[Rfam]
RNA sequence: CGUUGCAAGGGGAAUGGAGUCUCCCAAAACCGCCCGACAGGGCUGAUGACUCCUGCCAGUUC
Number, nucleotide and partner (000 for none) at each position: 001c000002g000003u000004u000005g000006c000007a000008a000009g000010g025011g024012g023013a022014a000015u000016g053017g052018a051019g050020u049021c048022u013023c012024c011025c010026a000027a000028a000029a000030c000031c000032g043033c042034c041035c040036g000037a000038c000039a000040g035041g034042g033043c032044u000045g000046a000047u000048g021049a020050c019051u018052c017053c016054u000055g000056c000057c000058a000059g000060u000061u000062c000
Fluoride riboswitch aptamer (crcB RNA motif): a 62-nucleotide RNA sequence from Edaphobacter dinghuensis. The family's consensus secondary structure is taken from published work.